Overview
The record is a 119-nucleotide sequence from Phytohabitans flavus, which matches "SAM (S-adenosyl methionine) riboswitch aptamer" in Rfam. Rfam's curators write: SAM-IV is a mRNA element that regulates gene expression via direct sensing of S-adenosylmethionine (SAM or AdoMet). Taxonomically the source falls in Phytohabitans (Bacteria, Bacillati, Actinomycetes, Micromonosporaceae). The base pairs follow the family's consensus structure, which is taken from published work.
[Rfam]
RNA sequence: GGUCAAGAGUGCCAGCGUCAAGCCCCGGCUCGCUGGCCGGCAACCCUCGUGUUCACGGUGGGGUGCCCCGGGUGACGACCAGACCCGUGGCCGAGCCGCGCUGCGGGUAAGCGUGAGCU
Numbered sequence: 001g002g003u004c005a006a007g008a009g010u011g012c013c014a015g016c017g018u019c020a021a022g023c024c025c026c027g028g029c030u031c032g033c034u035g036g037c038c039g040g041c042a043a044c045c046c047u048c049g050u051g052u053u054c055a056c057g058g059u060g061g062g063g064u065g066c067c068c069c070g071g072g073u074g075a076c077g078a079c080c081a082g083a084c085c086c087g088u089g090g091c092c093g094a095g096c097c098g099c100g101c102u103g104c105g106g107g108u109a110a111g112c113g114u115g116a117g118c119u
Stems, first nucleotide, its partner, number of pairs: 001080004009038001011037006021030002039067003044063003048058001083108009